[Rfam]
Nucleotides: 080
Stems, first nucleotide, its partner, number of pairs: 001080007
Number, partner (000 for none) and nucleotide at each position: 001080u002079g003078c004077u005076g006075u007074u008000a009000c010000u011000g012000a013000u014000g015000a016000u017000g018000a019000a020000g021000u022000u023000u024000a025000a026000a027000c028000a029000g030000a031000u032000g033000g034000g035000a036000a037000u038000c039000u040000c041000u042000c043000u044000g045000a046000a047000a048000g049000a050000g051000a052000a053000u054000g055000a056000a057000g058000c059000u060000u061000c062000a063000u064000u065000u066000u067000a068000a069000a070000c071000u072000g073000a074007a075006a076005c077004a078003g079002u080001a